[Rfam]
RNA sequence: GGAUGUGAGGGCGAUCUGGCUGCGACAUCUGUCACCCCAUUGAUCGCUAGGGUUGAUUCGGCUGAUCUGGCUGGCUAGGCGGGUGUCCCCUUCCUCCCUCCGUUCCAUGUGUGUCCCUCCCGAAGCCCCGCGCUCGGUGCUAGUGGACGUAUCCCGGCGGACGAGCAUCGUUGGUAUACCAGUAGCUGCUCCCCUGCUAGAACCUCCAAACAAGCUCAAGGCCCAUUUGUAGGAGAAACGUAGGGAAGUCAAGCUCCAAGACUUCAGACACAUCCAAAUGAGGCGCUGCACGUGGCAGUCUGCCGUAAUUU
Numbered sequence: 001g002g003a004u005g006u007g008a009g010g011g012c013g014a015u016c017u018g019g020c021u022g023c024g025a026c027a028u029c030u031g032u033c034a035c036c037c038c039a040u041u042g043a044u045c046g047c048u049a050g051g052g053u054u055g056a057u058u059c060g061g062c063u064g065a066u067c068u069g070g071c072u073g074g075c076u077a078g079g080c081g082g083g084u085g086u087c088c089c090c091u092u093c094c095u096c097c098c099u100c101c102g103u104u105c106c107a108u109g110u111g112u113g114u115c116c117c118u119c120c121c122g123a124a125g126c127c128c129c130g131c132g133c134u135c136g137g138u139g140c141u142a143g144u145g146g147a148c149g150u151a152u153c154c155c156g157g158c159g160g161a162c163g164a165g166c167a168u169c170g171u172u173g174g175u176a177u178a179c180c181a182g183u184a185g186c187u188g189c190u191c192c193c194c195u196g197c198u199a200g201a202a203c204c205u206c207c208a209a210a211c212a213a214g215c216u217c218a219a220g221g222c223c224c225a226u227u228u229g230u231a232g233g234a235g236a237a238a239c240g241u242a243g244g245g246a247a248g249u250c251a252a253g254c255u256c257c258a259a260g261a262c263u264u265c266a267g268a269c270a271c272a273u274c275c276a277a278a279u280g281a282g283g284c285g286c287u288g289c290a291c292g293u294g295g296c297a298g299u300c301u302g303c304c305g306u307a308a309u310u311u
Stems, first nucleotide, its partner, number of pairs: 001106003005101001007100005013093002018090002024087010035074002037070003042067004046062003115165001116163001118161002120137004125133002138159003145155002185254003189248002192245006204235004210230005276311003280306001282304003285299005
RNA: 7SK RNA